[Rfam]
RNA sequence: UUAAAACUAGCCACUUGUCAUUUUCUAAUUGAUUCUUAAAAAAAUUUAACACACUAAGAACCAAUUAAAAGAUGACAAGUGGCUAGUUUUGA
Numbered sequence: 001u002u003a004a005a006a007c008u009a010g011c012c013a014c015u016u017g018u019c020a021u022u023u024u025c026u027a028a029u030u031g032a033u034u035c036u037u038a039a040a041a042a043a044a045u046u047u048a049a050c051a052c053a054c055u056a057a058g059a060a061c062c063a064a065u066u067a068a069a070a071g072a073u074g075a076c077a078a079g080u081g082g083c084u085a086g087u088u089u090u091g092a
Stems, first nucleotide, its partner, number of pairs: 002091023026067006033060006
Dot-bracket structure: .(((((((((((((((((((((((.((((((.((((((................)))))).)))))).))))))))))))))))))))))).

Background
A member of the RNA family "MIR6288 microRNA precursor family" from Prunus yedoensis, 92 nucleotides long. Rfam 15.1 lists 293 matches to the family in 9 species. Gene Ontology terms of the family: RISC complex and miRNA-mediated post-transcriptional gene silencing. The base pairs follow the family's consensus structure, which was predicted with RNAalifold.